Small nucleolar RNA snoR74: a 133-nucleotide sequence from Phtheirospermum japonicum. NCBI's taxonomy places the organism under Eukaryota, Viridiplantae, Mesangiospermae, Gunneridae, Phtheirospermum. The match comes from Rfam's covariance-model search (97 bits). The base pairs follow the family's consensus structure, which was predicted with WAR.
[Rfam]
RNA sequence: AAAAAAGCAGGGAUCUAUUGCCUCUUGUGAAUUGAUCUCUCGUAAACACCAGGGACAUAAAAUUGGCAAUGUUAUUGGGUGAACCUAUUGAGUUAUUCGGAUGAUUGAUGGUUCAGUAAACAAUGCAACAUUU
Numbered sequence: 001a002a003a004a005a006a007g008c009a010g011g012g013a014u015c016u017a018u019u020g021c022c023u024c025u026u027g028u029g030a031a032u033u034g035a036u037c038u039c040u041c042g043u044a045a046a047c048a049c050c051a052g053g054g055a056c057a058u059a060a061a062a063u064u065g066g067c068a069a070u071g072u073u074a075u076u077g078g079g080u081g082a083a084c085c086u087a088u089u090g091a092g093u094u095a096u097u098c099g100g101a102u103g104a105u106u107g108a109u110g111g112u113u114c115a116g117u118a119a120a121c122a123a124u125g126c127a128a129c130a131u132u133u
Stems, first nucleotide, its partner, number of pairs: 007047001011038002014035002017032001066126003070122004080115006
The family has 9 seed sequences and 1,404 matches in Rfam 15.1. A reference for the family is Marker et al. (2002), "Experimental RNomics: identification of 140 candidates for small non-messenger RNAs in the plant Arabidopsis thaliana", Curr Biol. Its family is annotated with nucleolus and RNA processing in the Gene Ontology.